Shown here is a 380-nucleotide RNA from Fibrobacter sp. UWR2, a member of the family "Bacterial RNase P class A". The source organism's lineage runs through Bacteria, Pseudomonadati, Fibrobacteria, Fibrobacteraceae and Fibrobacter. By type it is a ribozyme.
RNA sequence: UGCGGGUAGCGGAUGGCCGCCGGCAGCAAUGCUGGAGGAAAGUCCGGGCACCACAGGGCAGGAUGCUGGAUAACGUCCAGGCGCGGAAACGCGACAGACAGUGCAACAGAAAGCAAACCGCCAGGUUCGGGCGCAAGUCCGGGCAAGGUAAGGGUGAAAUGGCGAGGUAAGAGCUCACCGCGUUCUUGGCGACAGGGACGGCACGGUAAACCUCAUCCGGUGCAAGACCAAGCAGAAUUCCGCUCGCGCAAGCGAGCCUGGAGCGGCCCGCGACAGUUGGAAUUCGGGUAGGUCGCUUGAGGCGGUCGGUAACGAUUCGUCCAGAGAGAUGGUCAUCGCCCCGCAAGGGGUACAGAACCCGGCUUAUAACUACUCAAUAC
Numbered sequence: 001u002g003c004g005g006g007u008a009g010c011g012g013a014u015g016g017c018c019g020c021c022g023g024c025a026g027c028a029a030u031g032c033u034g035g036a037g038g039a040a041a042g043u044c045c046g047g048g049c050a051c052c053a054c055a056g057g058g059c060a061g062g063a064u065g066c067u068g069g070a071u072a073a074c075g076u077c078c079a080g081g082c083g084c085g086g087a088a089a090c091g092c093g094a095c096a097g098a099c100a101g102u103g104c105a106a107c108a109g110a111a112a113g114c115a116a117a118c119c120g121c122c123a124g125g126u127u128c129g130g131g132c133g134c135a136a137g138u139c140c141g142g143g144c145a146a147g148g149u150a151a152g153g154g155u156g157a158a159a160u161g162g163c164g165a166g167g168u169a170a171g172a173g174c175u176c177a178c179c180g181c182g183u184u185c186u187u188g189g190c191g192a193c194a195g196g197g198a199c200g201g202c203a204c205g206g207u208a209a210a211c212c213u214c215a216u217c218c219g220g221u222g223c224a225a226g227a228c229c230a231a232g233c234a235g236a237a238u239u240c241c242g243c244u245c246g247c248g249c250a251a252g253c254g255a256g257c258c259u260g261g262a263g264c265g266g267c268c269c270g271c272g273a274c275a276g277u278u279g280g281a282a283u284u285c286g287g288g289u290a291g292g293u294c295g296c297u298u299g300a301g302g303c304g305g306u307c308g309g310u311a312a313c314g315a316u317u318c319g320u321c322c323a324g325a326g327a328g329a330u331g332g333u334c335a336u337c338g339c340c341c342c343g344c345a346a347g348g349g350g351u352a353c354a355g356a357a358c359c360c361g362g363c364u365u366a367u368a369a370c371u372a373c374u375c376a377a378u379a380c
Base pairs, nucleotide, nucleotide: 004375005374006373007372008371009370011367012337013336014335015334016333017332018331020035021034022033023032024031025030040365041364042363044362045361046360047359048358049222050221051220052219056269057268058267059266061218062217063216064215065214066080067079068078069077070076081095082093083092084091085090096213097212101211102210103207104206118153119152120149121148122147125144126143127142128141129140130139131138132137161179162178164176165175166174180202181200182199183198184197185196186195187194188193226294227293228292229291235285236284237283238282239281240280260274263271264270301321302320303319304318305317306315307314308313